[Rfam]
RNA: ES036 (CssrF) sRNA
Organism: Escherichia coli
RNA sequence: AAAAACAUGCAAAUUCAAUAUAUUGCAGGAGAGGCCU
Numbered sequence: 001a002a003a004a005a006c007a008u009g010c011a012a013a014u015u016c017a018a019u020a021u022a023u024u025g026c027a028g029g030a031g032a033g034g035c036c037u
Stems, first nucleotide, its partner, number of pairs: 006029001008027005